[Rfam]
RNA: mir-1000 microRNA precursor family
RNA sequence: GUCUGGAAUAUUGUCCUGUCACAGCAGUACGCAUUUAUAAGUUACUGGUGUGAUGGGACAUUGUCCUGGAU
Number, nucleotide and partner (000 for none) at each position: 001g000002u000003c069004u068005g067006g066007a000008a000009u000010a000011u000012u060013g059014u058015c057016c056017u055018g054019u000020c000021a000022c050023a049024g000025c047026a046027g045028u044029a043030c000031g000032c000033a000034u000035u000036u000037a000038u000039a000040a000041g000042u000043u029044a028045c027046u026047g025048g000049u023050g022051u000052g000053a000054u018055g017056g016057g015058a014059c013060a012061u000062u000063g000064u000065c000066c006067u005068g004069g003070a000071u000